[Rfam]
Annotation: Rfam assigns this 97-nucleotide RNA from Colocasia esculenta to the family "Plastid-rps12 3UTR RNA". Rfam describes the family as follows. Plastid rpl20 is a non-coding RNA (ncRNA) recognised in plastids. It was found in the three prime untranslated region (3UTR) of rps12 gene, its 3UTR location sugest a role in transcript maduration.
RNA sequence: GGUUUCUAUUGGUGCAAAUCCAAUCACCUUGAUUUGAGAUGAAAAAAAAAAUCUCCAUUGGUAGCAAAAGGUUAUCCAUUAAGCGGGGAAACAAUAU
Numbered sequence: 001g002g003u004u005u006c007u008a009u010u011g012g013u014g015c016a017a018a019u020c021c022a023a024u025c026a027c028c029u030u031g032a033u034u035u036g037a038g039a040u041g042a043a044a045a046a047a048a049a050a051a052u053c054u055c056c057a058u059u060g061g062u063a064g065c066a067a068a069a070g071g072u073u074a075u076c077c078a079u080u081a082a083g084c085g086g087g088g089a090a091a092c093a094a095u096a097u
Stems, first nucleotide, its partner, number of pairs: 009023004053088004057079002060076006
The family has 1,299 seed sequences and 1,710 matches in Rfam 15.1. Pairs were carried over by alignment from the consensus structure, which was predicted with LocARNA. On this family, see Richter et al., Plant Commun 2023: "Retrograde signaling in plants: A critical review focusing on the GUN pathway and beyond".